Background:
The family of this 264-nucleotide RNA from Sungouiella intermedia is "Small nucleolar RNA snR191". It scores 85 bits against the family's covariance model. A reference for the family is Badis et al. (2003), "A snoRNA that guides the two most conserved pseudouridine modifications within rRNA confers a growth advantage in yeast", RNA. The base pairs follow the family's consensus structure, which was predicted with WAR. Rfam links the family to the GO terms RNA processing and nucleolus.
RNA sequence: UCCCAAAGCCUUUUGUCAGGGUGGCAUUCGAUUUCAUAUCAACCAACUACAUUGUUGCCUGUUACGUCUUUGGAAGAUCAAUGCUAUUCGCCCGUGGUCCUAAGUGCUUGCACUUGGUGCUUGUUCCGUUCUGGAAUGAGCUUUGGUCACACCUGCUGGUAGUUUUUACUGGCAAUCUAGAAUAGUAUCGGAAACUUUUUGAGUUGGACCUACUCGACUUCGUGUCGUGAAAUGAGUUUGUCCGUAGUAUAGAGUCCGACACUU
Numbered sequence: 001u002c003c004c005a006a007a008g009c010c011u012u013u014u015g016u017c018a019g020g021g022u023g024g025c026a027u028u029c030g031a032u033u034u035c036a037u038a039u040c041a042a043c044c045a046a047c048u049a050c051a052u053u054g055u056u057g058c059c060u061g062u063u064a065c066g067u068c069u070u071u072g073g074a075a076g077a078u079c080a081a082u083g084c085u086a087u088u089c090g091c092c093c094g095u096g097g098u099c100c101u102a103a104g105u106g107c108u109u110g111c112a113c114u115u116g117g118u119g120c121u122u123g124u125u126c127c128g129u130u131c132u133g134g135a136a137u138g139a140g141c142u143u144u145g146g147u148c149a150c151a152c153c154u155g156c157u158g159g160u161a162g163u164u165u166u167u168a169c170u171g172g173c174a175a176u177c178u179a180g181a182a183u184a185g186u187a188u189c190g191g192a193a194a195c196u197u198u199u200u201g202a203g204u205u206g207g208a209c210c211u212a213c214u215c216g217a218c219u220u221c222g223u224g225u226c227g228u229g230a231a232a233u234g235a236g237u238u239u240g241u242c243c244g245u246a247g248u249a250u251a252g253a254g255u256c257c258g259a260c261a262c263u264u
Base pairs, nucleotide, nucleotide: 003073004072005071006070007069019060020059021058022057023056024055025054026053028051030040031039032038084185085184086183087182088181089180094150095149096148097147098146099145101140155173156172157171158170159169160168161167162166189258190257191256192255195252196251205244206243207242208241209240213229215227216226217225218224